[Rfam]
Shown here is an 86-nucleotide RNA from Branchiostoma lanceolatum, a member of the family "mir-2060 microRNA precursor family". It scores 80 bits against the family's covariance model. The family's consensus secondary structure was predicted with RNAalifold.

RNA sequence: GUAUGUAGAUGGUGUUCAGCACCAAGGACAGGUCUGUUACCCUGUGCGUGGAUGGUGUUCAGCACCAAGGACAGGUCUGUCAACAU
Numbered sequence: 001g002u003a004u005g006u007a008g009a010u011g012g013u014g015u016u017c018a019g020c021a022c023c024a025a026g027g028a029c030a031g032g033u034c035u036g037u038u039a040c041c042c043u044g045u046g047c048g049u050g051g052a053u054g055g056u057g058u059u060c061a062g063c064a065c066c067a068a069g070g071a072c073a074g075g076u077c078u079g080u081c082a083a084c085a086u
Stems, first nucleotide, its partner, number of pairs: 001072002010067007018059007026047001028045005